[Rfam]
Nucleotides: 114
Stems, first nucleotide, its partner, number of pairs: 003072009012062002016032005033058006041050002079108013
Number, partner (000 for none) and nucleotide at each position: 001000c002000a003072c004071c005070c006069g007068a008067c009066g010065u011064g012062g013061c014000a015000a016032a017031u018030g019029c020028g021000u022000c023000a024000g025000g026000g027000g028020c029019g030018c031017a032016u033058g034057a035056c036055u037054g038053g039000a040000a041050u042049u043000g044000g045000a046000a047000c048000a049042g050041g051000g052000g053038c054037c055036a056035g057034u058033c059000a060000c061013g062012c063000g064011u065010g066009c067008g068007u069006c070005g071004g072003g073000g074000g075000a076000g077000c078000c079108g080107g081106g082105g083104c084103c085102g086101g087100u088099a089098g090097u091096c092000g093000g094000g095000g096091g097090a098089c099088u100087a101086c102085c103084g104083g105082c106081c107080c108079u109000u110000u111000u112000u113000u114000u

Shown here is a 114-nucleotide RNA from Xanthomonas albilineans, a member of the family "Xanthomonadaceae sRNA asX1". Rfam classes the family as a small RNA. It scores 108 bits against the family's covariance model.